[Rfam]
RNA sequence: CUGUGUGUUGAGCCAUGAGAACUGAAUUCCAUAGAUGCUGUGGAACACAAAACUCAUCUAUGGGCUCAGUUCUUCUGGCUCCACGUUCAUGA
Numbered sequence: 001c002u003g004u005g006u007g008u009u010g011a012g013c014c015a016u017g018a019g020a021a022c023u024g025a026a027u028u029c030c031a032u033a034g035a036u037g038c039u040g041u042g043g044a045a046c047a048c049a050a051a052a053c054u055c056a057u058c059u060a061u062g063g064g065c066u067c068a069g070u071u072c073u074u075c076u077g078g079c080u081c082c083a084c085g086u087u088c089a090u091g092a
Stems, first nucleotide, its partner, number of pairs: 008083001011080003018073008033059004
Source information
The record is a 92-nucleotide sequence from Clupea harengus, which matches "mir-146 microRNA precursor family" in Rfam. For this family Rfam cites "Identification of tissue-specific microRNAs from mouse" (Lagos-Quintana et al., Curr Biol, 2002). Gene Ontology terms of the family: RISC complex and miRNA-mediated post-transcriptional gene silencing. A search with the family's covariance model found it, with a score of 53 bits.